A member of the RNA family "wcaG RNA", 98 nucleotides long. Rfam classes the family as a cis-regulatory element.

[Rfam]
Nucleotides: 098
Stems, first nucleotide, its partner, number of pairs: 009029007039053005055072004062084006
Number, partner (000 for none) and nucleotide at each position: 001000a002000u003000g004000a005000g006000u007000u008000u009029c010028u011027u012026g013025c014024u015023u016000c017000u018000c019000u020000c021000a022000a023015g024014a025013g026012c027011a028010a029009g030000u031000g032000g033000u034000g035000c036000g037000g038000a039053u040052g041051g042050g043049a044000c045000u046000c047000u048000c049043u050042c051041c052040c053039g054000c055072c056071c057070a058069g059000u060000u061000u062084c063083c064082u065081g066080c067079c068000u069058c070057u071056g072055g073000u074000c075000a076000a077000a078000g079067g080066g081065c082064a083063g084062g085000u086000g087000g088000c089000g090000a091000g092000c093000c094000u095000g096000a097000g098000u